Rfam assigns this 55-nucleotide RNA from Methylobrevis pamukkalensis to the family "terC RNA". The match comes from Rfam's covariance-model search (53 bits). NCBI's taxonomy places the organism under Bacteria, Pseudomonadati, Alphaproteobacteria, Pleomorphomonadaceae, Methylobrevis.

[Rfam]
RNA sequence: CCGUCAGGCCGGGCCCCUCUGGCAGCCAUCAGUGCUGCGAUGUCGGACUGAACGA
Number, nucleotide and partner (000 for none) at each position: 001c000002c000003g000004u000005c000006a049007g048008g000009c046010c045011g044012g043013g000014c000015c000016c000017c000018u000019c000020u000021g000022g038023c037024a036025g035026c034027c000028a000029u000030c000031a000032g000033u000034g026035c025036u024037g023038c022039g000040a000041u000042g000043u012044c011045g010046g009047a000048c007049u006050g000051a000052a000053c000054g000055a000